[Rfam]
The family of this 149-nucleotide sequence from Desulfovibrio falkowii is "FMN riboswitch aptamer (RFN element)". About the family: The RFN element is a highly conserved domain that is found frequently in the 5'-untranslated regions of prokaryotic mRNAs that encode for flavin mononucleotide (FMN) biosynthesis and transport proteins. A search with the family's covariance model found it, with a score of 106 bits.
RNA sequence: CAUGUUUCUCAGGGCGGGGUGCAAGUCCCCACCGGCGGUGAUACGGCGGCCUUAUGGCCGGCGGCAGCCCGCGAGCGCCCAUGUUGGGGUCAGCAGAUUCGGUGUGAAUCCGAAGCCGACGGUAAUAGUCCGGAUGGAAGAGAACGGUU
Numbered sequence: 001c002a003u004g005u006u007u008c009u010c011a012g013g014g015c016g017g018g019g020u021g022c023a024a025g026u027c028c029c030c031a032c033c034g035g036c037g038g039u040g041a042u043a044c045g046g047c048g049g050c051c052u053u054a055u056g057g058c059c060g061g062c063g064g065c066a067g068c069c070c071g072c073g074a075g076c077g078c079c080c081a082u083g084u085u086g087g088g089g090u091c092a093g094c095a096g097a098u099u100c101g102g103u104g105u106g107a108a109u110c111c112g113a114a115g116c117c118g119a120c121g122g123u124a125a126u127a128g129u130c131c132g133g134a135u136g137g138a139a140g141a142g143a144a145c146g147g148u149u
Stems, first nucleotide, its partner, number of pairs: 003147001006144005017029003031129002033118002035072004067116002075094002098114005120132003